RNA sequence: GCGCAUCUAGUAGGAAUUGAACCUACGAAUUUGCCAGUUAUGAGUUGGGCGCUUUAACCAUUCAGCCAUGAAUGC
Numbered sequence: 001g002c003g004c005a006u007c008u009a010g011u012a013g014g015a016a017u018u019g020a021a022c023c024u025a026c027g028a029a030u031u032u033g034c035c036a037g038u039u040a041u042g043a044g045u046u047g048g049g050c051g052c053u054u055u056a057a058c059c060a061u062u063c064a065g066c067c068a069u070g071a072a073u074g075c
Stems, first nucleotide, its partner, number of pairs: 003075004008070001010026005040069003044066006051059001

Shown here is a 75-nucleotide RNA from Gossypium stocksii, a member of the family "Plastid-ycf2 5UTR RNA".
Rfam describes the family as follows. Plastid ycf2 is a non-coding RNA (ncRNA) recognised in plastids. It was found in the prime untranslated region (5UTR) of ycf2 genes, it presents a tRNA-like motif which suggests it can be involved in mRNA maturation, particularly involved in defining the precise 5' end of the transcript.
The base pairs follow the family's consensus structure, which was predicted with LocARNA.
It is annotated as a cis-regulatory element.
The source organism's lineage runs through Eukaryota, Tracheophyta, Mesangiospermae, Gunneridae and Gossypium.